[Rfam]
RNA sequence: GGCAGAGUAGUCGUUAUGCGUUAAGUGUUAGAAGAUGGGAAGUUGCUUCUAAACGAAGAUUCUUAUCGCGUUGUAACGACGCUUCCGCUGCU
Numbered sequence: 001g002g003c004a005g006a007g008u009a010g011u012c013g014u015u016a017u018g019c020g021u022u023a024a025g026u027g028u029u030a031g032a033a034g035a036u037g038g039g040a041a042g043u044u045g046c047u048u049c050u051a052a053a054c055g056a057a058g059a060u061u062c063u064u065a066u067c068g069c070g071u072u073g074u075a076a077c078g079a080c081g082c083u084u085c086c087g088c089u090g091c092u
Stems, first nucleotide, its partner, number of pairs: 001092005010080009019070003025054002028052007038086005058067003
Dot-bracket structure: (((((....((((((((((((...((.(((((((...[[[[[...)))))))))...(((....)))))).))))))))).]]]]].)))))
Overview: Rfam assigns this 92-nucleotide sequence from Isachenkonia alkalipeptolytica to the family "THF (Tetrahydrofolate) riboswitch aptamer". NCBI's taxonomy places the organism under Bacteria, Bacillati, Clostridia, Eubacteriales, Isachenkonia. A search with the family's covariance model found it, with a score of 78 bits. Tetrahydrofolate (THF) riboswitch was first reported for Ames et al. as an RNA motif in 5' untranslated (5'-UTR)regions of folate transport and biosynthesis genes in Firmicutes genomes.